[Rfam]
This 116-nucleotide sequence from Chryseobacterium sp. SC28 belongs to the Rfam family "Flavo-1 RNA". Taxonomically the source falls in Chryseobacterium (Bacteria, Pseudomonadati, Flavobacteriia, Weeksellaceae). By type it is a small RNA. A search with the family's covariance model found it, with a score of 58 bits.
RNA sequence: GCGAAGCUGCGUAAGGGAUGGUAGUGAAAAUCCUUUUUAUGUGGCUUGGGCCGCGCUCCGGCUCUGAUCUAAGCGGCUGCCACAUAAAAAGAUUGCAACGGACAGCCCGACCCGAG
Numbered sequence: 001g002c003g004a005a006g007c008u009g010c011g012u013a014a015g016g017g018a019u020g021g022u023a024g025u026g027a028a029a030a031u032c033c034u035u036u037u038u039a040u041g042u043g044g045c046u047u048g049g050g051c052c053g054c055g056c057u058c059c060g061g062c063u064c065u066g067a068u069c070u071a072a073g074c075g076g077c078u079g080c081c082a083c084a085u086a087a088a089a090a091g092a093u094u095g096c097a098a099c100g101g102a103c104a105g106c107c108c109g110a111c112c113c114g115a116g
Stems, first nucleotide, its partner, number of pairs: 015108003019104002024099002029094004035089011